The record is a 154-nucleotide RNA sequence from Amborella trichopoda, which matches "MIR8565 microRNA precursor family" in Rfam. The base pairs follow the family's consensus structure, which was predicted with RNAalifold. Rfam links the family to the GO terms miRNA-mediated post-transcriptional gene silencing and RISC complex. The organism belongs to Amborella, within Eukaryota.
RNA sequence: CCCACACCCAUGUGUAUAGGAUCCCAAAUGAUCACCAUUAAAUUUGGCACAGAUCUCAAUAAAAGUUAUCACAUGGGUGUGAGACUUAACUUUUUUAGAGAUCUAUGCCAAAUUUAAUGAUGAUCUUUUAAGGUCCUACACACAUGAGUGUGGA
Numbered sequence: 001c002c003c004a005c006a007c008c009c010a011u012g013u014g015u016a017u018a019g020g021a022u023c024c025c026a027a028a029u030g031a032u033c034a035c036c037a038u039u040a041a042a043u044u045u046g047g048c049a050c051a052g053a054u055c056u057c058a059a060u061a062a063a064a065g066u067u068a069u070c071a072c073a074u075g076g077g078u079g080u081g082a083g084a085c086u087u088a089a090c091u092u093u094u095u096u097a098g099a100g101a102u103c104u105a106u107g108c109c110a111a112a113u114u115u116a117a118u119g120a121u122g123a124u125c126u127u128u129u130a131a132g133g134u135c136c137u138a139c140a141c142a143c144a145u146g147a148g149u150g151u152g153g154a
Stems, first nucleotide, its partner, number of pairs: 002153006009146005015140001017138007026129003030125003034121001036119014051104007059096001061094008069082005